A member of the RNA family "Small nucleolar RNA SNORA31" from Geococcyx californianus, 136 nucleotides long. A search with the family's covariance model found it, with a score of 55 bits. It is annotated as an H/ACA-box small nucleolar RNA. On this family, see Huttenhofer et al., EMBO J 2001: "RNomics: an experimental approach that identifies 201 candidates for novel, small, non-messenger RNAs in mouse". Rfam's curators write: ACA31 (SNORA31) belongs to the H/ACA class of snoRNAs which are thought to guide the sites of modification of uridines to pseudouridines. ACA31 is predicted to guide the pseudouridylation of U3713 in 28S rRNA and U218 in 18S rRNA. This family includes the mouse homologue snoMBI-161. The base pairs follow the family's consensus structure, which was predicted with RNAalifold.

RNA sequence: AUGCAUCUUUUUGACAGACCUGGAGCAAACUACCAUUGCUUCUCUGGUUCUUGCUGAGAUGCAACAGUAGCAGGUUCCUUGCGCUUUCUACCUGUCUGGCCUGCUGGCAGAGUGGAUUGAAUAAAGGAGCACAGAC
Dot-bracket structure: .(((((((...((...((((..((((((.......))))))....))))..))...)))))))............(((((...(..((((.(((((.........)))))..))))..)....)))))........
Numbered sequence: 001a002u003g004c005a006u007c008u009u010u011u012u013g014a015c016a017g018a019c020c021u022g023g024a025g026c027a028a029a030c031u032a033c034c035a036u037u038g039c040u041u042c043u044c045u046g047g048u049u050c051u052u053g054c055u056g057a058g059a060u061g062c063a064a065c066a067g068u069a070g071c072a073g074g075u076u077c078c079u080u081g082c083g084c085u086u087u088c089u090a091c092c093u094g095u096c097u098g099g100c101c102u103g104c105u106g107g108c109a110g111a112g113u114g115g116a117u118u119g120a121a122u123a124a125a126g127g128a129g130c131a132c133a134g135a136c
Stems, first nucleotide, its partner, number of pairs: 002063007012053002017049004023041006076128005084119001087116004092110005